[Rfam]
RNA sequence: CGGUCAUCCGAGGGGAGCCCCGACAUGGGGCUGAGAGUCCGCAAUCGAUGUCUGGCAACAGGCAUGGCAGCGCGGUGACCCUGCUGAACCUGAUCCGGGUCAUGCCGGCGUAGGGACGGAACACAGCGGCAAG
Numbered sequence: 001c002g003g004u005c006a007u008c009c010g011a012g013g014g015g016a017g018c019c020c021c022g023a024c025a026u027g028g029g030g031c032u033g034a035g036a037g038u039c040c041g042c043a044a045u046c047g048a049u050g051u052c053u054g055g056c057a058a059c060a061g062g063c064a065u066g067g068c069a070g071c072g073c074g075g076u077g078a079c080c081c082u083g084c085u086g087a088a089c090c091u092g093a094u095c096c097g098g099g100u101c102a103u104g105c106c107g108g109c110g111u112a113g114g115g116a117c118g119g120a121a122c123a124c125a126g127c128g129g130c131a132a133g
Stems, first nucleotide, its partner, number of pairs: 007120004011082004016076001017031005039075004089114004095108004
Dot-bracket structure: ......((((((((.((((((.....))))).......((((.............................)))))..))))......((((..((((......))))..))))..)))).............